The family of this 107-nucleotide RNA sequence from Synergistes jonesii is "TPP riboswitch aptamer (THI element)". From the family's description: Vitamin B(1) in its active form thiamin pyrophosphate (TPP) is an essential coenzyme that is synthesised by coupling of pyrimidine and thiazole moieties in bacteria. The family's consensus secondary structure is taken from published work.
RNA sequence: ACGCAGCAGACGGGGAGCCUGUUUUAAGGCUGAGAGGGGGCGACGCCCCGACCCGAUGAACCUGAUGCGGGUAAUGCCGCCGUAGGGAGAAUAGCUCGUGUGCGUUU
Numbered sequence: 001a002c003g004c005a006g007c008a009g010a011c012g013g014g015g016a017g018c019c020u021g022u023u024u025u026a027a028g029g030c031u032g033a034g035a036g037g038g039g040g041c042g043a044c045g046c047c048c049c050g051a052c053c054c055g056a057u058g059a060a061c062c063u064g065a066u067g068c069g070g071g072u073a074a075u076g077c078c079g080c081c082g083u084a085g086g087g088a089g090a091a092u093a094g095c096u097c098g099u100g101u102g103c104g105u106u107u
Base pairs, nucleotide, nucleotide: 006095007094009092011055012054013053014052017030018029019028020027037049038048039047040046041045061086062085063084064083067080068079069078070077